Rfam assigns this 62-nucleotide RNA from Orycteropus afer to the family "Gag/pol translational readthrough site". Pairs were carried over by alignment from the consensus structure, which is taken from published work. A search with the family's covariance model found it, with a score of 70 bits.
[Rfam]
RNA sequence: UAGGGGAGUCGGGACUCGGAACCCCUCCCUGAGUCUUGGGUAACAUUAAAAGUGGAGGGGAA
Numbered sequence: 001u002a003g004g005g006g007a008g009u010c011g012g013g014a015c016u017c018g019g020a021a022c023c024c025c026u027c028c029c030u031g032a033g034u035c036u037u038g039g040g041u042a043a044c045a046u047u048a049a050a051a052g053u054g055g056a057g058g059g060g061a062a
Stems, first nucleotide, its partner, number of pairs: 008041003012036004016031001018029002022060006
The family's RNA type in Rfam is cis-regulatory element. Gene Ontology term of the family: viral translational readthrough.